[Rfam]
RNA sequence: CACACCCGUGUGGGAGAGUCCGCGUAAAGCGGCGCCGAAGGGGCAAUUCCUCCCCGGAACCUCUCAGGCACCCGGACCACUACGGGCAUG
Numbered sequence: 001c002a003c004a005c006c007c008g009u010g011u012g013g014g015a016g017a018g019u020c021c022g023c024g025u026a027a028a029g030c031g032g033c034g035c036c037g038a039a040g041g042g043g044c045a046a047u048u049c050c051u052c053c054c055c056g057g058a059a060c061c062u063c064u065c066a067g068g069c070a071c072c073c074g075g076a077c078c079a080c081u082a083c084g085g086g087c088a089u090g
Stems, first nucleotide, its partner, number of pairs: 006085004010080004020032004034069003037065002041063003047057002
Description: This 90-nucleotide RNA sequence from Catellatospora methionotrophica belongs to the Rfam family "Glycine riboswitch aptamer". Rfam describes the family as follows. This family represents the bacterial glycine riboswitch. Glycine riboswitches usually consist of two metabolite-binding aptamers domains with similar structures in tandem. The aptamers cooperatively bind glycine to regulate the expression of downstream genes. In Bacillus subtilis, this riboswitch is found upstream of the gcvT operon which controls glycine degradation. The pairing is the family consensus, mapped onto this sequence. Its family is annotated with glycine biosynthetic process in the Gene Ontology.